[Rfam]
RNA sequence: GAUGGAGUCACUGGAGGCAGCGGUUCAUCGAUCUCUUCCUGAGAUUUUGUCUGUGAAAAGCACAAAAACAUGAAUCGGUCGAUAAACCUCUGCAUCCAGCGCUCGCUCA
Numbered sequence: 001g002a003u004g005g006a007g008u009c010a011c012u013g014g015a016g017g018c019a020g021c022g023g024u025u026c027a028u029c030g031a032u033c034u035c036u037u038c039c040u041g042a043g044a045u046u047u048u049g050u051c052u053g054u055g056a057a058a059a060g061c062a063c064a065a066a067a068a069c070a071u072g073a074a075u076c077g078g079u080c081g082a083u084a085a086a087c088c089u090c091u092g093c094a095u096c097c098a099g100c101g102c103u104c105g106c107u108c109a
Base pairs, nucleotide, nucleotide: 013097014096015095018092019091020090022088023087024086025085027083028082029081030080031079032078033077036074037073038072
MIR162_1 microRNA precursor family: a 109-nucleotide RNA from Rosa chinensis.
Rfam links the family to the GO terms miRNA-mediated post-transcriptional gene silencing and RISC complex.
The family is grouped with related families in Rfam's "MIR167 microRNA precursor clan".
NCBI's taxonomy places the organism under Eukaryota, Magnoliopsida, Mesangiospermae, eudicotyledons, Rosa.